[Rfam]
RNA sequence: AAAAUAAAGGAGCAAUAUCAAUUCUCUUGAUAUAAAAAGAGAUUGGUUAUUGCUCCUUUAAU
Number, nucleotide and partner (000 for none) at each position: 001a000002a000003a000004a000005u000006a059007a058008a057009g056010g055011a054012g053013c052014a051015a050016u049017a048018u000019c000020a000021a044022u000023u000024c041025u040026c039027u038028u037029g000030a000031u000032a000033u000034a000035a000036a000037a028038a027039g026040a025041g024042a000043u000044u021045g000046g000047u000048u017049a016050u015051u014052g013053c012054u011055c010056c009057u008058u007059u006060a000061a000062u000
Rfam assigns this 62-nucleotide sequence from Myricaria paniculata to the family "Plastid-psbA-4 3UTR RNA".
The family's consensus secondary structure was predicted with LocARNA.
The sequence is in the family's curated seed alignment.
NCBI's taxonomy places the organism under Eukaryota, Spermatophyta, eudicotyledons, Tamaricaceae, Myricaria.
Clan: Plastid-psbA 3UTR RNA clan.
Rfam describes the family as follows. Plastid psbA-4 is a non-coding RNA (ncRNA) present in plastids. It was identified in inverted repeat sequences in the 3 prime untranslate region (3UTR) of photosystem II quinone-binding protein (psbA).